[Rfam]
RNA: Purine riboswitch aptamer
RNA sequence: UGAUAAGUUUUGACUAAAAGCGAUAUAAUCUCAUAAUUGGUUGAGAGUUUCUACGACUUACCGUAAAUAAGUGGCUAUGGCUUUUAAAGAUUAAUAG
Dot-bracket structure: .................((((.(((...(((((........))))).........(((((.......)))))...))).))))..............
Numbered sequence: 001u002g003a004u005a006a007g008u009u010u011u012g013a014c015u016a017a018a019a020g021c022g023a024u025a026u027a028a029u030c031u032c033a034u035a036a037u038u039g040g041u042u043g044a045g046a047g048u049u050u051c052u053a054c055g056a057c058u059u060a061c062c063g064u065a066a067a068u069a070a071g072u073g074g075c076u077a078u079g080g081c082u083u084u085u086a087a088a089g090a091u092u093a094a095u096a097g
Stems, first nucleotide, its partner, number of pairs: 018083004023078003029046005056072005